[Rfam]
RNA sequence: CUUUAUAAUUUUUCAAGGCUGUAGACAGUAGGUGCGAAGGCAUAAAGGACCUUUGGGUCCGCCCACCGAGGCCGGAGAUAAAAGUGGCUUAUUGACAUUUGCUUUUGUCAUAAACGACCUCCGGACUUUGCCGUGAGGUCGUUUUUGUUUUCGCAA
Numbered sequence: 001c002u003u004u005a006u007a008a009u010u011u012u013u014c015a016a017g018g019c020u021g022u023a024g025a026c027a028g029u030a031g032g033u034g035c036g037a038a039g040g041c042a043u044a045a046a047g048g049a050c051c052u053u054u055g056g057g058u059c060c061g062c063c064c065a066c067c068g069a070g071g072c073c074g075g076a077g078a079u080a081a082a083a084g085u086g087g088c089u090u091a092u093u094g095a096c097a098u099u100u101g102c103u104u105u106u107g108u109c110a111u112a113a114a115c116g117a118c119c120u121c122c123g124g125a126c127u128u129u130g131c132c133g134u135g136a137g138g139u140c141g142u143u144u145u146u147g148u149u150u151u152c153g154c155a156a
Stems, first nucleotide, its partner, number of pairs: 028066002031063003034041002115141007124132001
RNA: Ribosomal protein L10 leader
Organism: Acetonema longum